miR-430 microRNA precursor family: a 70-nucleotide RNA from Myripristis murdjan.
On this family, see Giraldez et al., Science 2005: "MicroRNAs regulate brain morphogenesis in zebrafish".
The source organism's lineage runs through Eukaryota, Bilateria, Euteleostomi, Holocentriformes and Myripristis.
[Rfam]
RNA sequence: AGUAUUACCCUAACUGGAGCAUUGACUUGAGCUUUGUAUUCAGUAAGUGCUACUUGUUGGGGUAGUUUUA
Numbered sequence: 001a002g003u004a005u006u007a008c009c010c011u012a013a014c015u016g017g018a019g020c021a022u023u024g025a026c027u028u029g030a031g032c033u034u035u036g037u038a039u040u041c042a043g044u045a046a047g048u049g050c051u052a053c054u055u056g057u058u059g060g061g062g063u064a065g066u067u068u069u070a
Base pairs, nucleotide, nucleotide: 004066005065006064007063008062009061010060011059013057014056016054017053018051019050020049021048022047023046025044026043027042